[Rfam]
RNA sequence: CCGGCUUCCGGUUCACGGCUGCGGCAUUCGCAGGCGACCCGGGGCA
Dot-bracket structure: ...(.(.((((....((.(((((.....))))).))..)))).)).